[Rfam]
RNA sequence: CCCAGGGGCUGGCGCGGAGAGGGCGCACAGCGGGCUUGGCGACGCUGUAUGCCCUCACCGCCCAGCCCCCGGG
Numbered sequence: 001c002c003c004a005g006g007g008g009c010u011g012g013c014g015c016g017g018a019g020a021g022g023g024c025g026c027a028c029a030g031c032g033g034g035c036u037u038g039g040c041g042a043c044g045c046u047g048u049a050u051g052c053c054c055u056c057a058c059c060g061c062c063c064a065g066c067c068c069c070c071g072g073g
Base pairs, nucleotide, nucleotide: 001073002072003071005069006068007067009065010064011063012062014061015060016059017058019056020055021054022053023052024051027048028047029046030045031044032043
Rfam assigns this 73-nucleotide RNA from Microcebus murinus to the family "mir-675 microRNA precursor family". The family has 7 seed sequences and 64 matches in Rfam 15.1. The family's consensus secondary structure was predicted with RNAalifold. Gene Ontology terms of the family: miRNA-mediated post-transcriptional gene silencing and RISC complex. On this family, see Cai and Cullen, RNA 2007: "The imprinted H19 noncoding RNA is a primary microRNA precursor". NCBI's taxonomy places the organism under Eukaryota, Vertebrata, Gnathostomata, Lemuriformes, Microcebus.